[Rfam]
RNA sequence: UUGCAUGUGGAAGUUUCUUUCUCCUCACUCCUGUGGAGGAGGAAUGCAUCCAUUACAUGCUACAUUAGCAGGAGUUCUCAGGGCUGCCGGCCUGCCAGGAGAGGCUGGGCAGUAGUAUAUUGCUCCAACACAA
Numbered sequence: 001u002u003g004c005a006u007g008u009g010g011a012a013g014u015u016u017c018u019u020u021c022u023c024c025u026c027a028c029u030c031c032u033g034u035g036g037a038g039g040a041g042g043a044a045u046g047c048a049u050c051c052a053u054u055a056c057a058u059g060c061u062a063c064a065u066u067a068g069c070a071g072g073a074g075u076u077c078u079c080a081g082g083g084c085u086g087c088c089g090g091c092c093u094g095c096c097a098g099g100a101g102a103g104g105c106u107g108g109g110c111a112g113u114a115g116u117a118u119a120u121u122g123c124u125c126c127a128a129c130a131c132a133a
Stems, first nucleotide, its partner, number of pairs: 003060006017042008071126004083113002087109001088107006
Background: A member of the RNA family "Small nucleolar RNA U109" from Ochotona princeps, 133 nucleotides long. Rfam classes the family as an H/ACA-box small nucleolar RNA. NCBI's taxonomy places the organism under Eukaryota, Deuterostomia, Chordata, Euteleostomi, Ochotona.